[Rfam]
The record is a 157-nucleotide RNA sequence from Chelativorans petroleitrophicus, which matches "6S / SsrS RNA" in Rfam.
RNA sequence: GGCGGUCUGCGCCUCGCGACAGGAAUCCACAUCCCCGGGGCCUUAUCGAUCCUGAAGGGAGCUGUCCCUGACCUUGUCCGUGGACUUGGUCAUAUGGCGCCCACCUACUUUGUAGGUUCCCGGGAUCGAGCAUUCCAUCGGUUGUCGCGGAUCGCCA
Numbered sequence: 001g002g003c004g005g006u007c008u009g010c011g012c013c014u015c016g017c018g019a020c021a022g023g024a025a026u027c028c029a030c031a032u033c034c035c036c037g038g039g040g041c042c043u044u045a046u047c048g049a050u051c052c053u054g055a056a057g058g059g060a061g062c063u064g065u066c067c068c069u070g071a072c073c074u075u076g077u078c079c080g081u082g083g084a085c086u087u088g089g090u091c092a093u094a095u096g097g098c099g100c101c102c103a104c105c106u107a108c109u110u111u112g113u114a115g116g117u118u119c120c121c122g123g124g125a126u127c128g129a130g131c132a133u134u135c136c137a138u139c140g141g142u143u144g145u146c147g148c149g150g151a152u153c154g155c156c157a
Base pairs, nucleotide, nucleotide: 002155003154004153005152006151007150008149009148010147011146012144015141017140018139019138032125033124034123035122037120038119039118040117041116042115057102058101059100061098062097063096064095065094070091071090072089073088076085
E. coli 6S RNA was the first non coding RNA to be sequenced, but its function was unknown until recently. It consists of 184 nucleotides that fold into an extended hairpin structure with a large single-stranded internal bulge. The 6S RNA specifically associates with RNA polymerase holoenzyme containing the sigma70 specificity factor. This interaction represses expression from a sigma70-dependent promoter during stationary phase. 6S RNA homologs have recently been identified in most bacterial genomes. Many Gram-positive species have two copies of 6S RNA. In Bacillus subtilis, both copies appear to interact with RNA polymerase holoenzyme containing the housekeeping sigma factor and be expressed during different stages of growth. In many proteobacteria, 6S RNA may be processed from a transcript encoding homologs of the E. coli YgfA protein which is a putative 5-formyltetrahydrofolate cycloligase activity. On this family, see Wassarman and Storz, Cell 2000: "6S RNA regulates E. coli RNA polymerase activity".